[Rfam]
The record is a 521-nucleotide part of an RNA from Bugula neritina, which matches "Eukaryotic large subunit ribosomal RNA" in Rfam. It scores 2694 bits against the family's covariance model. The source organism's lineage runs through Eukaryota, Protostomia, Spiralia, Gymnolaemata and Bugula. Its family is annotated with structural constituent of ribosome and ribosome in the Gene Ontology.
RNA sequence: UAGAACAAUGUAGGUAAGGGAAGUCGGCAAAUCCGAUCCGUAACUUCGGGAUAAGGAUUGGCUCUGAGGUGCGGGCUGCUUCGGGUCGCGUCAAGAAGCGGAGCGCGCGUCGGUUGGACUGGACGCGCUCGCGCGCGUUCGGACCGCCGCCGGCGUGCCUCCGUGGACGGGCGUGGCUUUCGCCGGCGUCGGCUCUCGCGGGCCGGCGUCGGCUUCGUUCGGCCUAAACGCACAGCACAGAACUGGCGCGGACUCUGGGAACACGACUGUCUAAUUAAAACAAAGCAUCGCGAUGGCCGCUGGUCGGUGUUGACGCGAUGUGAUUUCUGCCCAGUGCUUUGAAUGUCAAAGUGAAGAAAUUCAACCAAGCGCAGGUAAACGGCGGGAGUAACUAUGACUCUCUUAAGGUAGCCAAAUGCCUCGUCAUCUAAUUAGUGACGCGCAUGAAUGGAUUAACGAUGUUCCCACUGUCCCUAUCUACUAUCUAGCGAAACCACAGCCAAGGGAACGGGCUUGGCAAA
Numbered sequence: 001u002a003g004a005a006c007a008a009u010g011u012a013g014g015u016a017a018g019g020g021a022a023g024u025c026g027g028c029a030a031a032u033c034c035g036a037u038c039c040g041u042a043a044c045u046u047c048g049g050g051a052u053a054a055g056g057a058u059u060g061g062c063u064c065u066g067a068g069g070u071g072c073g074g075g076c077u078g079c080u081u082c083g084g085g086u087c088g089c090g091u092c093a094a095g096a097a098g099c100g101g102a103g104c105g106c107g108c109g110u111c112g113g114u115u116g117g118a119c120u121g122g123a124c125g126c127g128c129u130c131g132c133g134c135g136c137g138u139u140c141g142g143a144c145c146g147c148c149g150c151c152g153g154c155g156u157g158c159c160u161c162c163g164u165g166g167a168c169g170g171g172c173g174u175g176g177c178u179u180u181c182g183c184c185g186g187c188g189u190c191g192g193c194u195c196u197c198g199c200g201g202g203c204c205g206g207c208g209u210c211g212g213c214u215u216c217g218u219u220c221g222g223c224c225u226a227a228a229c230g231c232a233c234a235g236c237a238c239a240g241a242a243c244u245g246g247c248g249c250g251g252a253c254u255c256u257g258g259g260a261a262c263a264c265g266a267c268u269g270u271c272u273a274a275u276u277a278a279a280a281c282a283a284a285g286c287a288u289c290g291c292g293a294u295g296g297c298c299g300c301u302g303g304u305c306g307g308u309g310u311u312g313a314c315g316c317g318a319u320g321u322g323a324u325u326u327c328u329g330c331c332c333a334g335u336g337c338u339u340u341g342a343a344u345g346u347c348a349a350a351g352u353g354a355a356g357a358a359a360u361u362c363a364a365c366c367a368a369g370c371g372c373a374g375g376u377a378a379a380c381g382g383c384g385g386g387a388g389u390a391a392c393u394a395u396g397a398c399u400c401u402c403u404u405a406a407g408g409u410a411g412c413c414a415a416a417u418g419c420c421u422c423g424u425c426a427u428c429u430a431a432u433u434a435g436u437g438a439c440g441c442g443c444a445u446g447a448a449u450g451g452a453u454u455a456a457c458g459a460u461g462u463u464c465c466c467a468c469u470g471u472c473c474c475u476a477u478c479u480a481c482u483a484u485c486u487a488g489c490g491a492a493a494c495c496a497c498a499g500c501c502a503a504g505g506g507a508a509c510g511g512g513c514u515u516g517g518c519a520a521a
Base pairs, nucleotide, nucleotide: 001487002486003485004484010481011480012479013478014477015476016475018473019472020471035059036058037057038056039055044049060244061243063241064240065239066238068236069233070232071231072230073229075223076222077221078220082217083216084215085177086176087175089173090172091171092170098164099163100162101161103158104157105156106155107154108153113148115146116145117144119142120141121140122139123138124137125136126135127134128133245249257466258465259464260463261462262461263460264458265457268282269281270280285321286320287319288318289317290316291315292314296308297307298306299305325452326451327450329383330382331381334380335379336376337375338374339373341372344371345370346369352363353362354361355360384402385401386400387399388398389397403407423439424438425437426436427435500517501516502515503514504513